[Rfam]
RNA sequence: UACAAUUCCAUACGGCUCGCAGGGGCGGUCGGCUCAUCCCCGAUAGAAAGGGGGUGAGACAAAUGGUGUCAUACGAUGCAGCAAACUUAGCAUUGAACUUCGGCGUGUUUACGCUAACCGUAAUCAGCGUAAUUAUCGCACUACUGGCACUAAACAAAAAGAAAUAGACCGCCCUCGCCAAAGGUCUGCGGUCUAUCUCAGGCAUUAAACACUGAGCCGUUCUGCUCUUGCAGCGUUGAAUUGUACAAGCCGUUUGGUGUUACCAGCACCAGCG
Numbered sequence: 001u002a003c004a005a006u007u008c009c010a011u012a013c014g015g016c017u018c019g020c021a022g023g024g025g026c027g028g029u030c031g032g033c034u035c036a037u038c039c040c041c042g043a044u045a046g047a048a049a050g051g052g053g054g055u056g057a058g059a060c061a062a063a064u065g066g067u068g069u070c071a072u073a074c075g076a077u078g079c080a081g082c083a084a085a086c087u088u089a090g091c092a093u094u095g096a097a098c099u100u101c102g103g104c105g106u107g108u109u110u111a112c113g114c115u116a117a118c119c120g121u122a123a124u125c126a127g128c129g130u131a132a133u134u135a136u137c138g139c140a141c142u143a144c145u146g147g148c149a150c151u152a153a154a155c156a157a158a159a160a161g162a163a164a165u166a167g168a169c170c171g172c173c174c175u176c177g178c179c180a181a182a183g184g185u186c187u188g189c190g191g192u193c194u195a196u197c198u199c200a201g202g203c204a205u206u207a208a209a210c211a212c213u214g215a216g217c218c219g220u221u222c223u224g225c226u227c228u229u230g231c232a233g234c235g236u237u238g239a240a241u242u243g244u245a246c247a248a249g250c251c252g253u254u255u256g257g258u259g260u261u262a263c264c265a266g267c268a269c270c271a272g273c274g
Stems, first nucleotide, its partner, number of pairs: 001245005007239002011235001013219006020177001022175004027169001029167001034057003038053004065148001067146002071142001078093001103139003187200002222233004251274003255271007